The record is a 106-nucleotide sequence, which matches "engA RNA" in Rfam. Rfam's curators put it in the seed alignment. By type it is a cis-regulatory element.

[Rfam]
RNA sequence: GCCCUGAAUGGAAAAGAGGGCGCACUCUCGUCACGAUGACGAGGGCCAGAGCAUGGUCGGCUCCGGCAAAUUAUUAACUUGGAUGCAGAGACCACAUCCGGCCCUC
Numbered sequence: 001g002c003c004c005u006g007a008a009u010g011g012a013a014a015a016g017a018g019g020g021c022g023c024a025c026u027c028u029c030g031u032c033a034c035g036a037u038g039a040c041g042a043g044g045g046c047c048a049g050a051g052c053a054u055g056g057u058c059g060g061c062u063c064c065g066g067c068a069a070a071u072u073a074u075u076a077a078c079u080u081g082g083a084u085g086c087a088g089a090g091a092c093c094a095c096a097u098c099c100g101g102c103c104c105u106c
Stems, first nucleotide, its partner, number of pairs: 001021005026044006045067003049063004079101007